mir-31 microRNA precursor family: an 82-nucleotide RNA sequence from Patiria miniata. Its family is annotated with RISC complex and gene silencing by miRNA in the Gene Ontology. The family's consensus secondary structure was predicted with RNAalifold.
[Rfam]
RNA sequence: AAGUGGAAAAAUGGCAAUAUGUAGGUACAGCUGGUUUUUUGGCAACAACAGCUAUGCCAACAUCUUGCCUUUUCUACACUCG
Numbered sequence: 001a002a003g004u005g006g007a008a009a010a011a012u013g014g015c016a017a018u019a020u021g022u023a024g025g026u027a028c029a030g031c032u033g034g035u036u037u038u039u040u041g042g043c044a045a046c047a048a049c050a051g052c053u054a055u056g057c058c059a060a061c062a063u064c065u066u067g068c069c070u071u072u073u074c075u076a077c078a079c080u081c082g
Stems, first nucleotide, its partner, number of pairs: 005077001007075001009073003013069005019063003024058004029053003